[Rfam]
RNA sequence: UAGCCCCGGGGGCACCGGACACGUGCAGGCCGGCUGGGGAAGCGGGAGGGCCGGCCCGGGGCGCCGCGCUCCGCGGGCAGCCGGCACUUGCACA
Numbered sequence: 001u002a003g004c005c006c007c008g009g010g011g012g013c014a015c016c017g018g019a020c021a022c023g024u025g026c027a028g029g030c031c032g033g034c035u036g037g038g039g040a041a042g043c044g045g046g047a048g049g050g051c052c053g054g055c056c057c058g059g060g061g062c063g064c065c066g067c068g069c070u071c072c073g074c075g076g077g078c079a080g081c082c083g084g085c086a087c088u089u090g091c092a093c094a
Base pairs, nucleotide, nucleotide: 003052005050006049007048011031012030013028
RNA: GRIK4 3 prime UTR element
Organism: Ailuropoda melanoleuca